[Rfam]
RNA: RAGATH-18 RNA
RNA sequence: AUUACGGACUGCUAAAUAAACAAAAGUAGGAUUUAAGUAAUUGAACUCAAAAUUGGGUAUGCUGAAGUAAUAA
Numbered sequence: 001a002u003u004a005c006g007g008a009c010u011g012c013u014a015a016a017u018a019a020a021c022a023a024a025a026g027u028a029g030g031a032u033u034u035a036a037g038u039a040a041u042u043g044a045a046c047u048c049a050a051a052a053u054u055g056g057g058u059a060u061g062c063u064g065a066a067g068u069a070a071u072a073a
Base pairs, nucleotide, nucleotide: 001071002070003069004068005067010059011058012057013056021055022054023053029048030047034044